[Rfam]
RNA sequence: UUCUGCCAAUGAUGAAUUGCAACUUUAUUGUCUACAUUGUUUGACAAGUCUUCUGUGAUAAGAAGUGCAAUUGCUGAGGCUUAA
Number, nucleotide and partner (000 for none) at each position: 001u084002u083003c000004u000005g080006c079007c078008a000009a000010u000011g000012a000013u000014g000015a000016a000017u000018u000019g000020c000021a000022a000023c000024u000025u000026u000027a000028u000029u000030g000031u000032c000033u000034a000035c000036a000037u000038u000039g000040u000041u000042u000043g000044a000045c000046a000047a000048g000049u000050c000051u000052u000053c000054u000055g000056u000057g000058a000059u000060a000061a000062g000063a000064a000065g000066u000067g000068c000069a000070a000071u000072u000073g000074c000075u000076g000077a000078g007079g006080c005081u000082u000083a002084a001

Small nucleolar RNA SNORD34: an 84-nucleotide RNA sequence from Digitaria exilis. For this family Rfam cites "Purified box C/D snoRNPs are able to reproduce site-specific 2'-O-methylation of target RNA in vitro" (Galardi et al., Mol Cell Biol, 2002). NCBI's taxonomy places the organism under Eukaryota, Mesangiospermae, Poales, Poaceae, Digitaria. About the family: snoRNA U34 is found in intron 5 of the ribosomal protein L13a gene in humans.